[Rfam]
RNA sequence: UUUGGAGUAGGAUUCAAGGCGUUAAGUGCUGGUGGAACGGAAUGUGAACACCGGACAAAGAGUUAUCUCGCGAUCUUGUUUCCGCAUUCGCCACU
Numbered sequence: 001u002u003u004g005g006a007g008u009a010g011g012a013u014u015c016a017a018g019g020c021g022u023u024a025a026g027u028g029c030u031g032g033u034g035g036a037a038c039g040g041a042a043u044g045u046g047a048a049c050a051c052c053g054g055a056c057a058a059a060g061a062g063u064u065a066u067c068u069c070g071c072g073a074u075c076u077u078g079u080u081u082c083c084g085c086a087u088u089c090g091c092c093a094c095u
Stems, first nucleotide, its partner, number of pairs: 003093003010083003015078005020072003026056002029054006040089005060069003
Dot-bracket structure: ..(((....(((..((((((((...((.((((((.....[[[[[....))))))))...(((....)))))).)))))..))).]]]]].)))..
The record is a 95-nucleotide sequence from Companilactobacillus farciminis, which matches "THF (Tetrahydrofolate) riboswitch aptamer" in Rfam. From the family's description: Tetrahydrofolate (THF) riboswitch was first reported for Ames et al. as an RNA motif in 5' untranslated (5'-UTR)regions of folate transport and biosynthesis genes in Firmicutes genomes. The match comes from Rfam's covariance-model search (70 bits). Taxonomically the source falls in Companilactobacillus (Bacteria, Bacillati, Bacillota, Bacilli). The literature on the family includes a 2010 paper in Chem Biol by Ames et al., "A eubacterial riboswitch class that senses the coenzyme tetrahydrofolate". The family's consensus secondary structure is taken from published work.